[Rfam]
RNA sequence: CACAUCAGCGCGAGUUGCUGACGUGGUAGCAAAUCGAGUCCUAGAAGGUGCGAUUUACUGCCACGUCGGCAACUCGCGCUGACGUGG
Numbered sequence: 001c002a003c004a005u006c007a008g009c010g011c012g013a014g015u016u017g018c019u020g021a022c023g024u025g026g027u028a029g030c031a032a033a034u035c036g037a038g039u040c041c042u043a044g045a046a047g048g049u050g051c052g053a054u055u056u057a058c059u060g061c062c063a064c065g066u067c068g069g070c071a072a073c074u075c076g077c078g079c080u081g082a083c084g085u086g087g
Stems, first nucleotide, its partner, number of pairs: 001086003005082017023064007031056006038049001040047001
RNA: MIR7486 microRNA precursor family